[Rfam]
This 239-nucleotide part of an RNA from a Candidatus Aenigmatarchaeota archaeon belongs to the Rfam family "Archaeal large subunit ribosomal RNA". Rfam 15.1 lists 2,955 matches to the family in 1,139 species. The base pairs follow the family's consensus structure, which is taken from published work. Rfam links the family to the GO terms structural constituent of ribosome and ribosome.
RNA sequence: GUAAAAUUGAAUCUUUCGUGAAACUGAUAAAAACGGCAUUCGAAAUGAACCUUGAGGGAAAACAGAGAAGAUACAAACUCGAAGAGGUUUUAAAGGAUUUGGAAAGCAAACAGAAUCCCCAGAGGCCAUACGCCAAACACUCAAGUGAGUGAAGAUAUGGUCCGACUCUUACAGUAAUGUAAGUCAGUUCGCUUAAGGUAGCGUAAUCCCUUGCCGAUUAAUUGUCGGCCUGCAUCAAG
Numbered sequence: 001g002u003a004a005a006a007u008u009g010a011a012u013c014u015u016u017c018g019u020g021a022a023a024c025u026g027a028u029a030a031a032a033a034c035g036g037c038a039u040u041c042g043a044a045a046u047g048a049a050c051c052u053u054g055a056g057g058g059a060a061a062a063c064a065g066a067g068a069a070g071a072u073a074c075a076a077a078c079u080c081g082a083a084g085a086g087g088u089u090u091u092a093a094a095g096g097a098u099u100u101g102g103a104a105a106g107c108a109a110a111c112a113g114a115a116u117c118c119c120c121a122g123a124g125g126c127c128a129u130a131c132g133c134c135a136a137a138c139a140c141u142c143a144a145g146u147g148a149g150u151g152a153a154g155a156u157a158u159g160g161u162c163c164g165a166c167u168c169u170u171a172c173a174g175u176a177a178u179g180u181a182a183g184u185c186a187g188u189u190c191g192c193u194u195a196a197g198g199u200a201g202c203g204u205a206a207u208c209c210c211u212u213g214c215c216g217a218u219u220a221a222u223u224g225u226c227g228g229c230c231u232g233c234a235u236c237a238a239g
Base pairs, nucleotide, nucleotide: 213229214228215227216226217225218224